[Rfam]
RNA sequence: GCAACGUUCUUAAGCGUCCAUUAAGCAUUCCAGUUGUUUACUGUGCGUAUCCAGUCAUCUGGAUUCUUACCGAGUGGUUGGAGCCACUUUGUUUGACGCCUCCCUGUUAAACUCCUGAGAGCCGCGCUUUUCCGCGGCUCUUUUUUU
Numbered sequence: 001g002c003a004a005c006g007u008u009c010u011u012a013a014g015c016g017u018c019c020a021u022u023a024a025g026c027a028u029u030c031c032a033g034u035u036g037u038u039u040a041c042u043g044u045g046c047g048u049a050u051c052c053a054g055u056c057a058u059c060u061g062g063a064u065u066c067u068u069a070c071c072g073a074g075u076g077g078u079u080g081g082a083g084c085c086a087c088u089u090u091g092u093u094u095g096a097c098g099c100c101u102c103c104c105u106g107u108u109a110a111a112c113u114c115c116u117g118a119g120a121g122c123c124g125c126g127c128u129u130u131u132c133c134g135c136g137g138c139u140c141u142u143u144u145u146u147u
Base pairs, nucleotide, nucleotide: 001046002045003044005016006015022040023039024038025037026036027035050063051062052061053060072089073088074087075086076085077084095108096107097106098105117142118141119140120139121138122137123136124135125134126133